This 585-nucleotide part of an RNA from Rubidibacter lacunae belongs to the Rfam family "Bacterial small subunit ribosomal RNA".
The family's consensus secondary structure is taken from published work.

RNA sequence: UGACGGGGGCCCGCACAAGCGGUGGAGGAUGUGGUUUAAUUCGAUGCAACGCGAAGAACCUUACCAGGGCUUGACAUCCGGCGAACCUUUGGGAAACCGAAGGGUGCCUUCGGGAGCGCCGUGACAGGUGGUGCAUGGCUGUCGUCAGCUCGUGUCGUGAGAUGUUGGGUUAAGUCCCGCAACGAGCGCAACCCUCGUCCUUAGUUGCCAGCAUUUAGUUGGGCACUCUAAGGAGACUGCUGGUGACAAACCGGAGGAAGGUGGGGACGACGUCAAGUCAGCAUGCCCCUUAUGCCCUGGGCUACACACGUCCUACAAUGGUCGGGACAACGGGCAGCGAACCCGCGAGGGCGAGCGAAUCCCAGCAAACCCGGUCUCAGUUCAGAUUGCAGGCUGCAACUCGCCUGCAUGAAGGAGGAAUCGCUAGUAAUCGCAGGUCAGCAUACUGCGGUGAAUUCGUUCCCGGGCCUUGUACACACCGCCCGUCACACCAUGGAAGCUGGCCACGCCCGAAGUCGUUACUCUAACCUACGGGAGGAGGGCGCCGAAGGCAGGGUUGGUGACUGGGGUGAAGUCGUAACAAGG
Numbered sequence: 001u002g003a004c005g006g007g008g009g010c011c012c013g014c015a016c017a018a019g020c021g022g023u024g025g026a027g028g029a030u031g032u033g034g035u036u037u038a039a040u041u042c043g044a045u046g047c048a049a050c051g052c053g054a055a056g057a058a059c060c061u062u063a064c065c066a067g068g069g070c071u072u073g074a075c076a077u078c079c080g081g082c083g084a085a086c087c088u089u090u091g092g093g094a095a096a097c098c099g100a101a102g103g104g105u106g107c108c109u110u111c112g113g114g115a116g117c118g119c120c121g122u123g124a125c126a127g128g129u130g131g132u133g134c135a136u137g138g139c140u141g142u143c144g145u146c147a148g149c150u151c152g153u154g155u156c157g158u159g160a161g162a163u164g165u166u167g168g169g170u171u172a173a174g175u176c177c178c179g180c181a182a183c184g185a186g187c188g189c190a191a192c193c194c195u196c197g198u199c200c201u202u203a204g205u206u207g208c209c210a211g212c213a214u215u216u217a218g219u220u221g222g223g224c225a226c227u228c229u230a231a232g233g234a235g236a237c238u239g240c241u242g243g244u245g246a247c248a249a250a251c252c253g254g255a256g257g258a259a260g261g262u263g264g265g266g267a268c269g270a271c272g273u274c275a276a277g278u279c280a281g282c283a284u285g286c287c288c289c290u291u292a293u294g295c296c297c298u299g300g301g302c303u304a305c306a307c308a309c310g311u312c313c314u315a316c317a318a319u320g321g322u323c324g325g326g327a328c329a330a331c332g333g334g335c336a337g338c339g340a341a342c343c344c345g346c347g348a349g350g351g352c353g354a355g356c357g358a359a360u361c362c363c364a365g366c367a368a369a370c371c372c373g374g375u376c377u378c379a380g381u382u383c384a385g386a387u388u389g390c391a392g393g394c395u396g397c398a399a400c401u402c403g404c405c406u407g408c409a410u411g412a413a414g415g416a417g418g419a420a421u422c423g424c425u426a427g428u429a430a431u432c433g434c435a436g437g438u439c440a441g442c443a444u445a446c447u448g449c450g451g452u453g454a455a456u457u458c459g460u461u462c463c464c465g466g467g468c469c470u471u472g473u474a475c476a477c478a479c480c481g482c483c484c485g486u487c488a489c490a491c492c493a494u495g496g497a498a499g500c501u502g503g504c505c506a507c508g509c510c511c512g513a514a515g516u517c518g519u520u521a522c523u524c525u526a527a528c529c530u531a532c533g534g535g536a537g538g539a540g541g542g543c544g545c546c547g548a549a550g551g552c553a554g555g556g557u558u559g560g561u562g563a564c565u566g567g568g569g570u571g572a573a574g575u576c577g578u579a580a581c582a583a584g585g
Base pairs, nucleotide, nucleotide: 001476002475003473004472005471007470008469009468010467011466012465013464015460016459019424020423021422022421023420024316026314027313028312029311030310031309032308033307034305035304040055041054042053043052064300065299066298067297068296069295070294077124078123079121080120081119082118083117086103087102088101089100090099091098092097105116107114108113127289128288130287131286132285133284136283137282138278139277140276141274143272144271148187149186150185151184152183153182154163155162156161166179167178168177169176193266194265195264196263198234199233200232201231202230203229204228208223209222212221213220237257238256240254241253242252243251244250320376321375322374323373324372325371326370332363333362334361337356338355342351343350344349383414388409389408390407391406392405393404394403430452431451432450433449434448435447436446479584481581484577485576489571490570491569492568494566495565496564499561500560501559502558503557504556505555508552509551510550515546517544518543519542520541522540523539524538525537528535529534